[Rfam]
Nucleotides: 078
Base pairs, nucleotide, nucleotide: 001077002076003075004074
Number, partner (000 for none) and nucleotide at each position: 001077c002076u003075g004074c005000a006000g007000g008000g009000a010000u011000g012000a013000u014000u015000u016000u017000a018000a019000a020000a021000c022000c023000u024000g025000a026000a027000c028000u029000c030000u031000c032000u033000c034000u035000u036000u037000c038000u039000g040000a041000u042000g043000g044000u045000g046000u047000a048000g049000u050000g051000g052000a053000g054000a055000a056000a057000a058000g059000a060000a061000a062000a063000a064000a065000g066000u067000u068000c069000u070000c071000u072000g073000a074004g075003u076002a077001g078000c